mir-344 microRNA precursor family: a 70-nucleotide RNA sequence from Mesocricetus auratus. Gene Ontology terms of the family: RISC complex and miRNA-mediated post-transcriptional gene silencing. NCBI's taxonomy places the organism under Eukaryota, Eumetazoa, Chordata, Myomorpha, Mesocricetus.
[Rfam]
RNA sequence: UCACCAGUCGGGCUCGGGCUGUACUACAGGACUCAGCUGAUCCUGGGUAUAACCCGAGCCCGACUGUGCA
Numbered sequence: 001u002c003a004c005c006a007g008u009c010g011g012g013c014u015c016g017g018g019c020u021g022u023a024c025u026a027c028a029g030g031a032c033u034c035a036g037c038u039g040a041u042c043c044u045g046g047g048u049a050u051a052a053c054c055c056g057a058g059c060c061c062g063a064c065u066g067u068g069c070a
Stems, first nucleotide, its partner, number of pairs: 007064003011060004016055003020051004027039003
For this family Rfam cites "Mammalian microRNAs: experimental evaluation of novel and previously annotated genes" (Chiang et al., Genes Dev, 2010). The base pairs follow the family's consensus structure, which was predicted with RNAalifold.